This 129-nucleotide RNA from Weissella kandleri belongs to the Rfam family "Ribosomal protein L10 leader". The source organism's lineage runs through Bacteria, Bacillota, Bacilli, Lactobacillales and Weissella. It scores 62 bits against the family's covariance model.

RNA sequence: UGAAUUAAAUCGAUUCUACCUAAGACGCCGGUGGCUAUUAGCCUUAAUAUCCUGCCGAGGAAGUGAAAAUGAGCGAAAGCAAGUUUGAGCCCCCGGCACUCUAAGUGUUGGGGGUUCUUAGUUAGAAUC
Numbered sequence: 001u002g003a004a005u006u007a008a009a010u011c012g013a014u015u016c017u018a019c020c021u022a023a024g025a026c027g028c029c030g031g032u033g034g035c036u037a038u039u040a041g042c043c044u045u046a047a048u049a050u051c052c053u054g055c056c057g058a059g060g061a062a063g064u065g066a067a068a069a070u071g072a073g074c075g076a077a078a079g080c081a082a083g084u085u086u087g088a089g090c091c092c093c094c095g096g097c098a099c100u101c102u103a104a105g106u107g108u109u110g111g112g113g114g115u116u117c118u119u120a121g122u123u124a125g126a127a128u129c
Base pairs, nucleotide, nucleotide: 027055028054030052031051033043034042035041090114091113092112093111094110095109096108097107098106099105